[Rfam]
Annotation
The family of this 237-nucleotide RNA sequence from Acanthosepion pharaonis is "Small nucleolar RNA SNORA73 family". A reference for the family is Cervelli et al. (2002), "Comparative Structure Analysis of Vertebrate U17 Small Nucleolar RNA (snoRNA)", J Mol Evol. Rfam 15.1 lists 2,326 matches to the family in 660 species. U17 (SNORA73A and SNORA73B) also known as E1 belongs to the H/ACA class of small nucleolar RNAs (snoRNAs). Vertebrate U17 is intron-encoded and ranges in length from 200-230 nucleotides, longer than most snoRNAs. It is one of the most abundant snoRNAs in human cells and is essential for the cleavage of pre-rRNA within the 5' external transcribed spacer (ETS). This cleavage leads to the formation of 18S rRNA. Regions of the U17 RNA are complementary to rRNA and act as guides for RNA/RNA interactions, although these regions do not seem to be well conserved between organisms. Lineage of the source: Eukaryota > Mollusca > Cephalopoda > Coleoidea > Acanthosepion. Pairs were carried over by alignment from the consensus structure, which is taken from published work.
RNA sequence: CCAACAUGUCUGCAGGUCUGUUAGAUCUGUUGUGGCGUACGGGGGCCGAAUCUCCGUGUAGCUUUAAUGUAAGGUUACUCUGGAGGGCAAUUCAGGUGUAUUCCCUUUCCACCAUGUUGGAAAUAAAAAUUGGACUCCCUGGUUUUGCAGGUGUGGGUCUCUAAACCCAAUAUAUUCCAUAACUUCCCAUAGCCUCUCUGGCUGUGAUUGGGGAGUGAGACCAUAUUGGGUACAUUU
Numbered sequence: 001c002c003a004a005c006a007u008g009u010c011u012g013c014a015g016g017u018c019u020g021u022u023a024g025a026u027c028u029g030u031u032g033u034g035g036c037g038u039a040c041g042g043g044g045g046c047c048g049a050a051u052c053u054c055c056g057u058g059u060a061g062c063u064u065u066a067a068u069g070u071a072a073g074g075u076u077a078c079u080c081u082g083g084a085g086g087g088c089a090a091u092u093c094a095g096g097u098g099u100a101u102u103c104c105c106u107u108u109c110c111a112c113c114a115u116g117u118u119g120g121a122a123a124u125a126a127a128a129a130u131u132g133g134a135c136u137c138c139c140u141g142g143u144u145u146u147g148c149a150g151g152u153g154u155g156g157g158u159c160u161c162u163a164a165a166c167c168c169a170a171u172a173u174a175u176u177c178c179a180u181a182a183c184u185u186c187c188c189a190u191a192g193c194c195u196c197u198c199u200g201g202c203u204g205u206g207a208u209u210g211g212g213g214a215g216u217g218a219g220a221c222c223a224u225a226u227u228g229g230g231u232a233c234a235u236u237u
Stems, first nucleotide, its partner, number of pairs: 001120007008026003012021003032112004041105004045099001167229007183215006192202003